[Rfam]
RNA sequence: GGGGGCGUUUAUGGAUUCGACGGGGGUAGUUCGAGCAUGGGUUGCGGGUAGUGGGGACGCGUCCGCUUCAUCAACGCUAAAGCCUAUUAAAUGGCAAACAACAACCAACCUACGCUGUAGCAGCUUAAUAACCUGUUCGCGUGCUCUCGCUCUGUAUCGCCCAUGUACCGGGAUGAGGGCCCAACUUUAGUGGGAUACGCUGUCACAUCUCCGCCUGGGGUGUGCUGAAGAAGACAAUCAGGCUGACCUAGAUCGAAGCCGGUUACGGGGCGUCGGCCUAGGUGACAUCAAAACUGUGACUACACCCGUAGAAGCCUGUGUGCCGUUAUCUUCGGACAGGGGUUCAACUCCCCUCGCCUCCACCA
Numbered sequence: 001g002g003g004g005g006c007g008u009u010u011a012u013g014g015a016u017u018c019g020a021c022g023g024g025g026g027u028a029g030u031u032c033g034a035g036c037a038u039g040g041g042u043u044g045c046g047g048g049u050a051g052u053g054g055g056g057a058c059g060c061g062u063c064c065g066c067u068u069c070a071u072c073a074a075c076g077c078u079a080a081a082g083c084c085u086a087u088u089a090a091a092u093g094g095c096a097a098a099c100a101a102c103a104a105c106c107a108a109c110c111u112a113c114g115c116u117g118u119a120g121c122a123g124c125u126u127a128a129u130a131a132c133c134u135g136u137u138c139g140c141g142u143g144c145u146c147u148c149g150c151u152c153u154g155u156a157u158c159g160c161c162c163a164u165g166u167a168c169c170g171g172g173a174u175g176a177g178g179g180c181c182c183a184a185c186u187u188u189a190g191u192g193g194g195a196u197a198c199g200c201u202g203u204c205a206c207a208u209c210u211c212c213g214c215c216u217g218g219g220g221u222g223u224g225c226u227g228a229a230g231a232a233g234a235c236a237a238u239c240a241g242g243c244u245g246a247c248c249u250a251g252a253u254c255g256a257a258g259c260c261g262g263u264u265a266c267g268g269g270g271c272g273u274c275g276g277c278c279u280a281g282g283u284g285a286c287a288u289c290a291a292a293a294c295u296g297u298g299a300c301u302a303c304a305c306c307c308g309u310a311g312a313a314g315c316c317u318g319u320g321u322g323c324c325g326u327u328a329u330c331u332u333c334g335g336a337c338a339g340g341g342g343u344u345c346a347a348c349u350c351c352c353c354u355c356g357c358c359u360c361c362a363c364c365a
Stems, first nucleotide, its partner, number of pairs: 001361007021334010033323001035321009045308005051069001053067002059077004119137005143180006150172003154168004160194005200230002203227001206224003213243005246283006253276003258271003262300004338354005
A member of the RNA family "transfer-messenger RNA" from Paenibacillus beijingensis, 365 nucleotides long. Clan: tRNA clan. About the family: Bacterial tmRNA, also known as 10Sa RNA or SsrA, is named for its dual tRNA and mRNA-like properties. The match comes from Rfam's covariance-model search (189 bits). It is annotated as a non-coding RNA gene.